[Rfam]
RNA sequence: CCGCGCGAGUGCCACGCGGCCUCUGCCCGGAUGCGGACCCUGACGUACUUCCCCGACGCCAGGUGCCGCUUCGGUCAGAGACCCCGCGGCAUUCGUAACGUCGC
Numbered sequence: 001c002c003g004c005g006c007g008a009g010u011g012c013c014a015c016g017c018g019g020c021c022u023c024u025g026c027c028c029g030g031a032u033g034c035g036g037a038c039c040c041u042g043a044c045g046u047a048c049u050u051c052c053c054c055g056a057c058g059c060c061a062g063g064u065g066c067c068g069c070u071u072c073g074g075u076c077a078g079a080g081a082c083c084c085c086g087c088g089g090c091a092u093u094c095g096u097a098a099c100g101u102c103g104c
Stems, first nucleotide, its partner, number of pairs: 010091004015086002018083002021080005027074005034068003039063004044058003